The record is a 96-nucleotide sequence from Anopheles stephensi, which matches "mir-981 microRNA precursor family" in Rfam.
RNA sequence: CCUUAUCUGGAUCGGGUUUCGCUGGCUAACGUGUUGUAAAAGCGACUCGCAAGUAAAUCUUCAAUUCGUUGUCGACGAAACCUGCACGGAAUAAGG
Dot-bracket structure: ((((((......(((((((((.........(.(((...........................))).)........)))))))))......))))))

On this family, see Legeai et al., BMC Genomics 2010: "Bioinformatic prediction, deep sequencing of microRNAs and expression analysis during phenotypic plasticity in the pea aphid, Acyrthosiphon pisum". Its family is annotated with RISC complex and miRNA-mediated post-transcriptional gene silencing in the Gene Ontology. Pairs were carried over by alignment from the consensus structure, which was predicted with RNAalifold.